[Rfam]
The family of this 349-nucleotide sequence from Staphylococcus aureus is "Bacterial RNase P class B".
Rfam links the family to the GO terms tRNA processing, ribonuclease P activity and dimeric ribonuclease P complex.
Lineage of the source: Bacteria > Bacilli > Caryophanales > Staphylococcaceae > Staphylococcus.

RNA sequence: GAGGAAAGUCCGGGCUCACACAGUCUGAGAUGAUUGUAGUGUUCGUGCUUGAUGAAACAAUAAAUCAAGGCAUUAAUUUGACGGCAAUGAAAUAUCCUAAGUCUUUCGAUAUGGAUAGAGUAAUUUGAAAGUGCCACAGUGACGUAGCUUUUAUAGAAAUAUAAAAGGUGGAACGCGGUAAACCCCUCGAGUGAGCAAUCCAAAUUUGGUAGGAGCACUUGUUUAACGGAAUUCAACGUAUAAACGAGACACACUUCGCGAAAUGAAGUGGUGUAGACAGAUGGUUAUCACCUGAGUACCAGUGUGACUAGUGCACGUGAUGAGUACGAUGGAACAGAACGCGGCUUAU
Number, nucleotide and partner (000 for none) at each position: 001g000002a000003g000004g000005a000006a347007a346008g345009u000010c344011c343012g342013g000014g340015c195016u194017c193018a192019c191020a037021c036022a035023g034024u033025c032026u000027g000028a000029g000030a000031u000032g025033a024034u023035u022036g021037u020038a000039g000040u000041g000042u000043u190044c189045g188046u000047g186048c069049u068050u067051g066052a065053u064054g000055a000056a000057a000058c000059a000060a000061u000062a000063a000064a053065u052066c051067a050068a049069g048070g082071c080072a079073u000074u000075a000076a000077u000078u000079u072080g071081a000082c070083g185084g184085c000086a125087a124088u123089g000090a000091a000092a000093u000094a116095u115096c114097c113098u000099a000100a000101g110102u109103c108104u000105u000106u000107c000108g103109a102110u101111a000112u000113g097114g096115a095116u094117a000118g000119a000120g000121u000122a000123a088124u087125u086126u000127g000128a000129a000130a000131g183132u182133g179134c178135c177136a000137c000138a000139g000140u000141g000142a000143c000144g000145u000146a000147g000148c167149u166150u165151u164152u163153a162154u161155a160156g000157a000158a000159a000160u155161a154162u153163a152164a151165a150166a149167g148168g000169u000170g000171g000172a000173a000174c000175g000176c000177g135178g134179u133180a000181a000182a132183c131184c084185c083186c047187u000188c045189g044190a043191g019192u018193g017194a016195g015196c000197a000198a000199u214200c213201c212202a000203a000204a000205u000206u000207u000208g000209g000210u000211a000212g201213g200214a199215g000216c000217a000218c248219u247220u246221g245222u244223u243224u242225a000226a000227c000228g000229g000230a000231a000232u000233u000234c000235a000236a000237c000238g000239u000240a000241u000242a224243a223244a222245c221246g220247a219248g218249a274250c273251a272252c270253a269254c268255u267256u266257c265258g264259c000260g000261a000262a000263a000264u258265g257266a256267a255268g254269u253270g252271g000272u251273g250274u249275a000276g000277a000278c000279a000280g000281a000282u000283g000284g000285u000286u000287a000288u000289c000290a000291c332292c331293u000294g000295a000296g327297u326298a325299c324300c000301a000302g000303u000304g000305u000306g000307a000308c000309u000310a000311g000312u000313g000314c000315a000316c000317g000318u000319g000320a000321u000322g000323a000324g299325u298326a297327c296328g000329a000330u000331g292332g291333a000334a000335c000336a000337g000338a000339a000340c014341g000342c012343g011344g010345c008346u007347u006348a000349u000